The record is a 171-nucleotide RNA sequence from Agarivorans albus, which matches "Lysine riboswitch aptamer" in Rfam.
RNA sequence: CUAUAUUGUAGAGGAGCGCUGGUCAAAAGUAGUGCAGAGUGGGGUGAUUCCAAUGAUUCUGUAUGAAAGGGGCCCGCGCCGAAGUAACUAGCAUUAUCAAGGCUAAUUACUGGUGUCGGAUUUAAUAGAUACGACACUGUCAUAGUCCAACUAUGGAGAGCUACAGAGUGA
Numbered sequence: 001c002u003a004u005a006u007u008g009u010a011g012a013g014g015a016g017c018g019c020u021g022g023u024c025a026a027a028a029g030u031a032g033u034g035c036a037g038a039g040u041g042g043g044g045u046g047a048u049u050c051c052a053a054u055g056a057u058u059c060u061g062u063a064u065g066a067a068a069g070g071g072g073c074c075c076g077c078g079c080c081g082a083a084g085u086a087a088c089u090a091g092c093a094u095u096a097u098c099a100a101g102g103c104u105a106a107u108u109a110c111u112g113g114u115g116u117c118g119g120a121u122u123u124a125a126u127a128g129a130u131a132c133g134a135c136a137c138u139g140u141c142a143u144a145g146u147c148c149a150a151c152u153a154u155g156g157a158g159a160g161c162u163a164c165a166g167a168g169u170g171a
Stems, first nucleotide, its partner, number of pairs: 006166006016079004021074004032064008083111005089105004094100001112138007120130003140156007